This 362-nucleotide sequence from Hydrogenophaga sp. A37 belongs to the Rfam family "Bacterial RNase P class A". The family's consensus secondary structure is taken from published work. Gene Ontology terms of the family: tRNA processing, ribonuclease P activity and dimeric ribonuclease P complex. Rfam classes the family as a ribozyme. The match comes from Rfam's covariance-model search (176 bits).
RNA sequence: GAAGCGCGCCAGGCCGUCGCUGGCACGAGACCCGAAAGGGUGUGCUGGAGGAACGUCCGGACUGCACAGGACAGCGCAGGAGGUAACACCUCUCCACCGACAAGCCGGACAGGGCAACCUGGAAGGCCCUAAGGUGAGGAUCAGAGCAACAGAGACGAGCCGCUUCAGUGCGGGUGAAACGGGCAAUCUCUGCGCGCAGCAAUACCAAAUAGGCCAACGUUGACGUGGUUCCGCGGAGUUGGCGGGUAGGUAGCACCGAGCCGGGUGGGUGACCCCCGGCCCAGAUGAAUGACGGUCACGUUCGGGGCCCUCGAAAGGGGGUUCAGGACGCACAAAAUCCGGCGUAUCGGCGCGCUUCACAC
Numbered sequence: 001g002a003a004g005c006g007c008g009c010c011a012g013g014c015c016g017u018c019g020c021u022g023g024c025a026c027g028a029g030a031c032c033c034g035a036a037a038g039g040g041u042g043u044g045c046u047g048g049a050g051g052a053a054c055g056u057c058c059g060g061a062c063u064g065c066a067c068a069g070g071a072c073a074g075c076g077c078a079g080g081a082g083g084u085a086a087c088a089c090c091u092c093u094c095c096a097c098c099g100a101c102a103a104g105c106c107g108g109a110c111a112g113g114g115c116a117a118c119c120u121g122g123a124a125g126g127c128c129c130u131a132a133g134g135u136g137a138g139g140a141u142c143a144g145a146g147c148a149a150c151a152g153a154g155a156c157g158a159g160c161c162g163c164u165u166c167a168g169u170g171c172g173g174g175u176g177a178a179a180c181g182g183g184c185a186a187u188c189u190c191u192g193c194g195c196g197c198a199g200c201a202a203u204a205c206c207a208a209a210u211a212g213g214c215c216a217a218c219g220u221u222g223a224c225g226u227g228g229u230u231c232c233g234c235g236g237a238g239u240u241g242g243c244g245g246g247u248a249g250g251u252a253g254c255a256c257c258g259a260g261c262c263g264g265g266u267g268g269g270u271g272a273c274c275c276c277c278g279g280c281c282c283a284g285a286u287g288a289a290u291g292a293c294g295g296u297c298a299c300g301u302u303c304g305g306g307g308c309c310c311u312c313g314a315a316a317g318g319g320g321g322u323u324c325a326g327g328a329c330g331c332a333c334a335a336a337a338u339c340c341g342g343c344g345u346a347u348c349g350g351c352g353c354g355c356u357u358c359a360c361a362c
Stems, first nucleotide, its partner, number of pairs: 001358010011347001012297007020048008053345003057342005062199004069230001071229001074195005079093005094138001095136004139190002144188002146184002160173002162169002203252004213243006224235004260280006267274002